[Rfam]
RNA sequence: CCAUGGAUCCGGGCCCCUCUGGCGCAUUCCGGACACUGCGUGAUGUCGGAUCCUGUUU
Numbered sequence: 001c002c003a004u005g006g007a008u009c010c011g012g013g014c015c016c017c018u019c020u021g022g023c024g025c026a027u028u029c030c031g032g033a034c035a036c037u038g039c040g041u042g043a044u045g046u047c048g049g050a051u052c053c054u055g056u057u058u
Base pairs, nucleotide, nucleotide: 006052007051008050009049010048011047012046022041023040024039025038026037
Source information:
Shown here is a 58-nucleotide RNA sequence from Rhizobium sp. NFR07, a member of the family "terC RNA". The base pairs follow the family's consensus structure, which is taken from published work.